[Rfam]
RNA sequence: CAGAAGAUUCUGUAAAGCUCAGGAGGGAUAGCGCCAUCAUCAUCAUCUCAUUCAAAUCGAUAUUUUGGCGCUGUCCAUCCUGAGUUUCAUUGGCUCUUCUU
Numbered sequence: 001c002a003g004a005a006g007a008u009u010c011u012g013u014a015a016a017g018c019u020c021a022g023g024a025g026g027g028a029u030a031g032c033g034c035c036a037u038c039a040u041c042a043u044c045a046u047c048u049c050a051u052u053c054a055a056a057u058c059g060a061u062a063u064u065u066u067g068g069c070g071c072u073g074u075c076c077a078u079c080c081u082g083a084g085u086u087u088c089a090u091u092g093g094c095u096c097u098u099c100u101u
Stems, first nucleotide, its partner, number of pairs: 010092001016086009026076010
RNA: MIR390 microRNA precursor family